The record is a 324-nucleotide RNA sequence from Loxodonta africana, which matches "7SK RNA" in Rfam. By type it is a non-coding RNA gene. The family's consensus secondary structure is taken from published work. The family is grouped with related families in Rfam's "7SK clan". Lineage of the source: Eukaryota > Eumetazoa > Chordata > Eutheria > Loxodonta. Rfam's curators write: 7SK was discovered as an abundant small nuclear RNA in the mid-70s but a possible function has only recently been suggested. Two independent studies have found that 7SK RNA binds the CDK9/cyclin T complex (known as elongation factor P-TEFb). P-TEFb activates transcription by phosphorylating the C-terminal domain of RNA polymerase II. This process is negatively regulated by the 7SK RNP. The secondary structure of 7SK RNA shown here was proposed by Wasserman and Steitz on the basis of chemical modification and enzymatic cleavage experiments. Rfam 15.1 lists 49,373 matches to the family in 668 species.
RNA sequence: GGAUAUGAGGGUGAUCUGGCUGUGACAUCUGUCACCCCAUUGACCCCAUAGGGUUCAUUCAGCUAAUCUGACUGGCUAGGCAGGUGUCCCCUUCCUCCCUCACUGCUCCACGUGUCCCUCCCAAAGCUGCACACUUGACAGAAGAGGACAGCCUUCCCCUCAAGAGGUGGGCCGUUCUUUGGUCAAGGGUAUACGAGUAGCCACACUCUCCUGCUAGAACUUCCAAACAAGCUCUCAAGGUCCAUUUGUAGGAGAACGUAGAGUAGCCAAGCUUCCAAGACUCCAGACACAUCCAGAUGGUGCUGCAUGUGGCAGUUUGCCUUU
Number, nucleotide and partner (000 for none) at each position: 001g109002g108003a107004u000005a000006u102007g101008a100009g099010g098011g097012u000013g094014a093015u000016c000017u000018g091019g090020c000021u000022g000023u000024g088025a087026c086027a085028u084029c083030u082031g081032u080033c079034a000035c075036c074037c000038c070039a069040u000041u000042g068043a067044c000045c000046c000047c062048a000049u061050a000051g000052g000053g000054u000055u000056c000057a000058u000059u000060c000061a049062g047063c000064u000065a000066a000067u043068c042069u039070g038071a000072c000073u000074g036075g035076c000077u000078a000079g033080g032081c031082a030083g029084g028085u027086g026087u025088c024089c000090c019091c018092u000093u014094c013095c000096u000097c011098c010099c009100u008101c007102a006103c000104u000105g000106c000107u003108c002109c001110a000111c000112g000113u000114g000115u170116c169117c167118c166119u165120c164121c000122c137123a136124a135125a000126g134127c000128u000129g000130c000131a000132c000133a000134c126135u124136u123137g122138a000139c000140a160141g159142a000143a000144g000145a000146g157147g156148a155149c000150a000151g000152c000153c000154u000155u148156c147157c146158c000159c141160u140161c000162a000163a000164g120165a119166g118167g117168u000169g116170g115171g000172c000173c000174g000175u000176u000177c000178u000179u000180u000181g000182g000183u000184c000185a000186a000187g000188g000189g000190u000191a000192u000193a000194c000195g000196a000197g000198u000199a000200g272201c271202c000203a000204c000205a000206c266207u265208c000209u263210c000211c261212u260213g259214c258215u000216a000217g000218a000219a000220c000221u254222u253223c252224c251225a000226a000227a249228c248229a247230a246231g245232c000233u000234c000235u000236c000237a000238a000239g000240g000241u000242c000243c000244a000245u231246u230247u229248g228249u227250a000251g224252g223253a222254g221255a000256a000257c000258g214259u213260a212261g211262a000263g209264u000265a207266g206267c000268c000269a000270a000271g201272c200273u000274u000275c000276c000277a000278a000279g000280a000281c000282u000283c000284c000285a000286g000287a000288c000289a000290c000291a000292u000293c000294c000295a000296g000297a000298u000299g321300g320301u319302g316303c315304u314305g313306c312307a000308u000309g000310u000311g000312g306313c305314a304315g303316u302317u000318u000319g301320c300321c299322u000323u000324u000